epsC RNA: a 125-nucleotide sequence from Bacillus cereus. It is one of the family's seed sequences. The source organism's lineage runs through Bacteria, Bacilli, Caryophanales, Bacillaceae and Bacillus cereus. The family's RNA type in Rfam is cis-regulatory element.
[Rfam]
RNA sequence: UGGUGAUGUCUCCUAACCGUUAUCAAAGGAGGCACUCGGUCGUGCUGUGGGUAGAAAUUUUUAUUUCGAACCUACCUUAGACGCUUGUCGUCGGGAGUAUGACGUGAGGAUGGGUUAGAUGCCCA
Dot-bracket structure: [[[[..(((((((..]]]]........)))))))((((((((((((..((((((((((....))))).....)))))..((((.....))))...)))))))).))))..(((((.....)))))
Numbered sequence: 001u002g003g004u005g006a007u008g009u010c011u012c013c014u015a016a017c018c019g020u021u022a023u024c025a026a027a028g029g030a031g032g033c034a035c036u037c038g039g040u041c042g043u044g045c046u047g048u049g050g051g052u053a054g055a056a057a058u059u060u061u062u063a064u065u066u067c068g069a070a071c072c073u074a075c076c077u078u079a080g081a082c083g084c085u086u087g088u089c090g091u092c093g094g095g096a097g098u099a100u101g102a103c104g105u106g107a108g109g110a111u112g113g114g115u116u117a118g119a120u121g122c123c124c125a
Stems, first nucleotide, its partner, number of pairs: 001019004007034007035108004039103008049077005054067005080092004111125005